[Rfam]
RNA: Fluoride riboswitch aptamer (crcB RNA motif)
RNA sequence: AAUGAAUUUGGGAAUGAAGUUCUCCCAUGGUUAAAUAAAGCCAAAACCGCAUUUAUGCUGAUGACUUCUGUGAGUAA
Numbered sequence: 001a002a003u004g005a006a007u008u009u010g011g012g013a014a015u016g017a018a019g020u021u022c023u024c025c026c027a028u029g030g031u032u033a034a035a036u037a038a039a040g041c042c043a044a045a046a047c048c049g050c051a052u053u054u055a056u057g058c059u060g061a062u063g064a065c066u067u068c069u070g071u072g073a074g075u076a077a
Stems, first nucleotide, its partner, number of pairs: 010026004016068006049058003